[Rfam]
RNA sequence: GGUUGUGAGUUGGAGGCCAUAGCAGAAGCGCUCACGCUGUGCCUCUGCCAGAUUCCAGUGGUUGCGAAUUCUGUU
Numbered sequence: 001g002g003u004u005g006u007g008a009g010u011u012g013g014a015g016g017c018c019a020u021a022g023c024a025g026a027a028g029c030g031c032u033c034a035c036g037c038u039g040u041g042c043c044u045c046u047g048c049c050a051g052a053u054u055c056c057a058g059u060g061g062u063u064g065c066g067a068a069u070u071c072u073g074u075u
Base pairs, nucleotide, nucleotide: 013045014044015043016042017041021075022074023073024072025071026070027069028040029039030038049064050063051062054061055060
RNA: Mammalian CPEB3 ribozyme